[Rfam]
RNA sequence: UGAAAAUGAUGAGAUUCCACUCAUUGGUCCGUGUUUCUGAAACACAUGAUCUUUGUGGUAAUUCUGAUUUG
Numbered sequence: 001u002g003a004a005a006a007u008g009a010u011g012a013g014a015u016u017c018c019a020c021u022c023a024u025u026g027g028u029c030c031g032u033g034u035u036u037c038u039g040a041a042a043c044a045c046a047u048g049a050u051c052u053u054u055g056u057g058g059u060a061a062u063u064c065u066g067a068u069u070u071g
Stems, first nucleotide, its partner, number of pairs: 001071004
Small nucleolar RNA SNORD18: a 71-nucleotide RNA sequence from Moschus moschiferus. The match comes from Rfam's covariance-model search (70 bits). The literature on the family includes a 2001 paper in EMBO J by Giorgi et al., "Release of U18 snoRNA from its host intron requires interaction of Nop1p with the Rnt1p endonuclease". By type it is a C/D-box small nucleolar RNA. NCBI's taxonomy places the organism under Eukaryota, Vertebrata, Euteleostomi, Moschidae, Moschus. The family has 16 seed sequences and 2,622 matches in Rfam 15.1.